[Rfam]
Background:
Shown here is a 133-nucleotide RNA sequence from Bagarius yarrelli, a member of the family "U8 small nucleolar RNA". The literature on the family includes a 2010 paper in Nucleic Acids Res by Hokii et al., "A small nucleolar RNA functions in rRNA processing in Caenorhabditis elegans". Rfam classes the family as a C/D-box small nucleolar RNA. NCBI's taxonomy places the organism under Eukaryota, Opisthokonta, Actinopteri, Siluriformes, Bagarius. Pairs were carried over by alignment from the consensus structure, which is taken from published work. Rfam links the family to the GO terms nucleolus and RNA processing.
RNA sequence: ACAUCAGUGAGGUACAUCCUUACCUGUUACCUUAGAAAUAAGGUUGCAGAAUAUGAUGAUUGGAUUCGAUGAAUGUGUGAUUAUAUUCCGCAUUUGUCAAGGAACCGCAACACCUUGAUGAAUCCUGUCUGAU
Number, nucleotide and partner (000 for none) at each position: 001a000002c000003a000004u000005c000006a000007g000008u000009g000010a000011g000012g000013u000014a000015c000016a000017u000018c000019c000020u000021u000022a000023c000024c049025u048026g047027u000028u046029a044030c043031c042032u041033u040034a000035g000036a000037a000038a000039u000040a033041a032042g031043g030044u029045u000046g028047c026048a025049g024050a000051a000052u000053a000054u000055g000056a000057u000058g000059a000060u000061u000062g000063g000064a000065u000066u000067c000068g000069a000070u000071g000072a000073a000074u000075g087076u000077g000078u083079g000080a000081u000082u000083a078084u000085a000086u000087u075088c000089c000090g000091c000092a000093u122094u121095u120096g119097u118098c117099a116100a115101g114102g000103a000104a000105c000106c000107g000108c000109a000110a000111c000112a000113c000114c101115u100116u099117g098118a097119u096120g095121a094122a093123u000124c000125c000126u000127g000128u000129c000130u000131g000132a000133u000